[Rfam]
RNA sequence: UUAUCCAGGAGGGCCGUUAACCACAUCCGGUCCGUGUGGGAGGACCUCCUGGAAGACC
Numbered sequence: 001u002u003a004u005c006c007a008g009g010a011g012g013g014c015c016g017u018u019a020a021c022c023a024c025a026u027c028c029g030g031u032c033c034g035u036g037u038g039g040g041a042g043g044a045c046c047u048c049c050u051g052g053a054a055g056a057c058c
Base pairs, nucleotide, nucleotide: 004053005052006051007050008049009048010047011046012045014043015042021039022038023037024036025035026034
Hepatitis C virus stem-loop SL8001 RNA: a 58-nucleotide RNA from Orthohepacivirus hominis. A reference for the family is Pirakitikulr et al. (2016), "The Coding Region of the HCV Genome Contains a Network of Regulatory RNA Structures", Mol Cell. The family's consensus secondary structure was predicted with RNAfold. It is one of the family's seed sequences. Even though Hepatitis C virus (HCV) SL8001 is not required for overall replication, conformational changes in this motif tune the initial rate of replication.